[Rfam]
RNA sequence: GAAUCAAUAAUGUACCGGAAACAUGCCACAGUUGGUUUAUCUGUCUUCUAACAGUAAUUAAUUGCCAGUGUUUCAACAAGAUUGAAAUACCAGUUUCCCAGAUCAAUAUAAUUGGACAGGAUAGGAAGUCCGUUGUCUGUGCAAUCCCUUCAAAAAUGGGGGGAAAGAUAGACUUGGGAUGUCGUCUGAUAGUCUACAUUU
Numbered sequence: 001g002a003a004u005c006a007a008u009a010a011u012g013u014a015c016c017g018g019a020a021a022c023a024u025g026c027c028a029c030a031g032u033u034g035g036u037u038u039a040u041c042u043g044u045c046u047u048c049u050a051a052c053a054g055u056a057a058u059u060a061a062u063u064g065c066c067a068g069u070g071u072u073u074c075a076a077c078a079a080g081a082u083u084g085a086a087a088u089a090c091c092a093g094u095u096u097c098c099c100a101g102a103u104c105a106a107u108a109u110a111a112u113u114g115g116a117c118a119g120g121a122u123a124g125g126a127a128g129u130c131c132g133u134u135g136u137c138u139g140u141g142c143a144a145u146c147c148c149u150u151c152a153a154a155a156a157u158g159g160g161g162g163g164a165a166a167g168a169u170a171g172a173c174u175u176g177g178g179a180u181g182u183c184g185u186c187u188g189a190u191a192g193u194c195u196a197c198a199u200u201u
Stems, first nucleotide, its partner, number of pairs: 017074004030063008041054004106193002112188001128180004135173004141169001145165001147163005